RNA: Selenocysteine insertion sequence 1
RNA sequence: GCCAGAGCAUGACGAGCUGCGCAGAAACCCCCCGGGGCCGCGCAGGUCCGAGCUCCCCUGGC
Numbered sequence: 001g002c003c004a005g006a007g008c009a010u011g012a013c014g015a016g017c018u019g020c021g022c023a024g025a026a027a028c029c030c031c032c033c034g035g036g037g038c039c040g041c042g043c044a045g046g047u048c049c050g051a052g053c054u055c056c057c058c059u060g061g062c
Stems, first nucleotide, its partner, number of pairs: 001062005014048002017045006029037003